[Rfam]
RNA sequence: AGUUGCUAUCGGUACACCCGUUCGAAAGGCGGGGUCACAAAGCCUCCGGUCUACUUCCUUAGCGGGAAACGAUAGCGGGGCUGCCUCG
Numbered sequence: 001a002g003u004u005g006c007u008a009u010c011g012g013u014a015c016a017c018c019c020g021u022u023c024g025a026a027a028g029g030c031g032g033g034g035u036c037a038c039a040a041a042g043c044c045u046c047c048g049g050u051c052u053a054c055u056u057c058c059u060u061a062g063c064g065g066g067a068a069a070c071g072a073u074a075g076c077g078g079g080g081c082u083g084c085c086u087c088g
Stems, first nucleotide, its partner, number of pairs: 012038002017033004022029002041082004046078003049073003056067004
RNA: c-di-GMP-I riboswitch aptamer